[Rfam]
RNA sequence: GCGAGACGCUCGGACCCCGGGCGAUUUUGCCCGAUAAGAUGUUCACGGACGGCGCCAGGCGCAGCCCUGUGCCCGUCCAUAAAAGAUCAGCCAGCAGCCGCUGCAACCCCAGGGAG
Numbered sequence: 001g002c003g004a005g006a007c008g009c010u011c012g013g014a015c016c017c018c019g020g021g022c023g024a025u026u027u028u029g030c031c032c033g034a035u036a037a038g039a040u041g042u043u044c045a046c047g048g049a050c051g052g053c054g055c056c057a058g059g060c061g062c063a064g065c066c067c068u069g070u071g072c073c074c075g076u077c078c079a080u081a082a083a084a085g086a087u088c089a090g091c092c093a094g095c096a097g098c099c100g101c102u103g104c105a106a107c108c109c110c111a112g113g114g115a116g
Stems, first nucleotide, its partner, number of pairs: 047078006055071001056069004092103004
Notes
The family of this 116-nucleotide sequence from Streptomyces sp. TS71-3 is "Streptomyces-metK RNA". The family's RNA type in Rfam is small RNA. Taxonomically the source falls in Streptomyces (Bacteria, Bacillati, Actinomycetes, Kitasatosporales).